Rfam assigns this 46-nucleotide sequence from Perca fluviatilis to the family "Histone 3' UTR stem-loop". The organism belongs to Perca, within Eukaryota. Rfam classes the family as a cis-regulatory element. For this family Rfam cites "NMR structure and dynamics of the RNA-binding site for the histone mRNA stem-loop binding protein" (DeJong et al., RNA, 2002).
RNA sequence: CCAACGGCUCUUUUAAGAGCCACACACUUCUUCUUUAAGAGCAAAG
Numbered sequence: 001c002c003a004a005c006g007g008c009u010c011u012u013u014u015a016a017g018a019g020c021c022a023c024a025c026a027c028u029u030c031u032u033c034u035u036u037a038a039g040a041g042c043a044a045a046g
Stems, first nucleotide, its partner, number of pairs: 006021006